[Rfam]
RNA sequence: UGACCCUUUUAAAGCCGAAAGGGUCACCUAGCCAACUGACGUUGUUAGUGAAUACAAAUUGUUCACACUAUAUCUAAGCCAAUCGUAGUUUUACGGUUGGCAUUUUUUUU
Numbered sequence: 001u002g003a004c005c006c007u008u009u010u011a012a013a014g015c016c017g018a019a020a021g022g023g024u025c026a027c028c029u030a031g032c033c034a035a036c037u038g039a040c041g042u043u044g045u046u047a048g049u050g051a052a053u054a055c056a057a058a059u060u061g062u063u064c065a066c067a068c069u070a071u072a073u074c075u076a077a078g079c080c081a082a083u084c085g086u087a088g089u090u091u092u093a094c095g096g097u098u099g100g101c102a103u104u105u106u107u108u109u110u
Base pairs, nucleotide, nucleotide: 001026002025003024004023005022006021042077043076044075048066049065050064051063052062053061054060079100080099081098082097083096084095085094086093
RNA: Qrr RNA
Organism: Vibrio eleionomae